This 134-nucleotide RNA sequence from Nothobranchius furzeri belongs to the Rfam family "Small nucleolar RNA SNORA5". It scores 83 bits against the family's covariance model. The family has 6 seed sequences and 2,226 matches in Rfam 15.1.
RNA sequence: CGCAGCUUUGUCAAAUUCAGUGCUCCCUCUGUGGGUCGCACUGGCCAAAAUGGCUGCCACACUAACUCUGUGGUUUAUGGGCCCCACGCUUCUGAACCGUGAGCCGUGGGGAUAAAUUUGUUCCACAGACAAUU
Dot-bracket structure: .((((............((((((..(((....)))..))))))..........))))............((((.(......(((((((................)))))))........)..))))........

Rfam describes the family as follows. ACA5 is a member of the H/ACA class of snoRNA that guide the sites of modification of uridines to pseudouridines.